[Rfam]
RNA sequence: CAAUCGCAAGGGCACACCCGUCGUGAGGCGGGGUCGCAAAGGCACGGAACCCUCGGGUUGGCCGGCCUACCGGA
Number, nucleotide and partner (000 for none) at each position: 001c000002a000003a000004u000005c000006g000007c000008a000009a000010g000011g000012g037013c036014a000015c000016a000017c032018c031019c030020g029021u028022c027023g000024u000025g000026a000027g022028g021029c020030g019031g018032g017033g000034u000035c000036g013037c012038a000039a000040a068041g067042g066043c065044a000045c064046g063047g062048a059049a058050c057051c056052c000053u000054c000055g000056g051057g050058u049059u048060g000061g000062c047063c046064g045065g043066c042067c041068u040069a000070c000071c000072g000073g000074a000